A member of the RNA family "TPP riboswitch aptamer (THI element)" from Coriobacteriaceae bacterium BV3Ac1, 113 nucleotides long.
Taxonomically the source falls in Coriobacteriaceae (Bacteria, Bacillati, Actinomycetota, Coriobacteriia).
A search with the family's covariance model found it, with a score of 61 bits.
RNA sequence: ACAACUCGAUAGGGGGGCUGGCGCACGCCGGCUGAGAUUGGGUCCACUGCGACCCUGACCCGUAGACCUGAUCUGGGUAAUGCCAGCGUAGGGACCAGCGUAUACGAAGGGUC
Numbered sequence: 001a002c003a004a005c006u007c008g009a010u011a012g013g014g015g016g017g018c019u020g021g022c023g024c025a026c027g028c029c030g031g032c033u034g035a036g037a038u039u040g041g042g043u044c045c046a047c048u049g050c051g052a053c054c055c056u057g058a059c060c061c062g063u064a065g066a067c068c069u070g071a072u073c074u075g076g077g078u079a080a081u082g083c084c085a086g087c088g089u090a091g092g093g094a095c096c097a098g099c100g101u102a103u104a105c106g107a108a109g110g111g112u113c
Stems, first nucleotide, its partner, number of pairs: 007100002010097001012061003016056001017032005040055004067092004073086004